The family of this 119-nucleotide RNA from Lawsonibacter hominis is "azaaromatic riboswitch aptamer (yjdF RNA)". Lineage of the source: Bacteria > Bacillota > Eubacteriales > Oscillospiraceae > Lawsonibacter. A search with the family's covariance model found it, with a score of 76 bits.

RNA sequence: GACGGCGGAACGAAAAACACGGCCCGGUUGGUAGUCCGGGCGCGGCCUGCAGCGUCUGUCCCGCGCGGCAGGCCGUCAGUAACCUGCCUCCUUGGUUGUCCGCGUUCCGUAUGCAGUUA
Numbered sequence: 001g002a003c004g005g006c007g008g009a010a011c012g013a014a015a016a017a018c019a020c021g022g023c024c025c026g027g028u029u030g031g032u033a034g035u036c037c038g039g040g041c042g043c044g045g046c047c048u049g050c051a052g053c054g055u056c057u058g059u060c061c062c063g064c065g066c067g068g069c070a071g072g073c074c075g076u077c078a079g080u081a082a083c084c085u086g087c088c089u090c091c092u093u094g095g096u097u098g099u100c101c102g103c104g105u106u107c108c109g110u111a112u113g114c115a116g117u118u119a
Stems, first nucleotide, its partner, number of pairs: 005110007022041006042076009086096003